[Rfam]
RNA sequence: CCACAUUGAAUAUUGGAACAUUUAAUUGCGCUAAAUCGUUUCAUUAAAAAAAUAACCUUUUCAAACUUAUUAAAUUAAGGCAAAUUUUAAAAAAUGGUAAUAUUUUUGACUGUACAAAUUGCUACCUCGAAAAUACAAUCAAUGUGUCUAAUGAAUAAUUUGUUUUAUAAACACUUUUUUGUUUACUUCUCAUUUU
Numbered sequence: 001c002c003a004c005a006u007u008g009a010a011u012a013u014u015g016g017a018a019c020a021u022u023u024a025a026u027u028g029c030g031c032u033a034a035a036u037c038g039u040u041u042c043a044u045u046a047a048a049a050a051a052a053u054a055a056c057c058u059u060u061u062c063a064a065a066c067u068u069a070u071u072a073a074a075u076u077a078a079g080g081c082a083a084a085u086u087u088u089a090a091a092a093a094a095u096g097g098u099a100a101u102a103u104u105u106u107u108g109a110c111u112g113u114a115c116a117a118a119u120u121g122c123u124a125c126c127u128c129g130a131a132a133a134u135a136c137a138a139u140c141a142a143u144g145u146g147u148c149u150a151a152u153g154a155a156u157a158a159u160u161u162g163u164u165u166u167a168u169a170a171a172c173a174c175u176u177u178u179u180u181g182u183u184u185a186c187u188u189c190u191c192a193u194u195u196u
Stems, first nucleotide, its partner, number of pairs: 002146004007141003015042005020036005048088004053083001056080004098137001101135008168185006

This 196-nucleotide sequence from Staphylococcus argenteus belongs to the Rfam family "Teg49 sRNA". Rfam's curators write: Present in the extended promoter region of the staphylococcal accessory regulator sarA. It is modulated by sigB (sarA regulator) and cshA (an ATP-dependant DEAD box RNA helicase) and it most likely contributes to virulence of S. aureus by modulating SarA expression. Taxonomically the source falls in Staphylococcus (Bacteria, Bacillati, Bacillota, Staphylococcaceae). For this family Rfam cites "Contribution of teg49 small RNA in the 5' upstream transcriptional region of sarA to virulence in Staphylococcus aureus" (Kim et al., Infect Immun, 2014).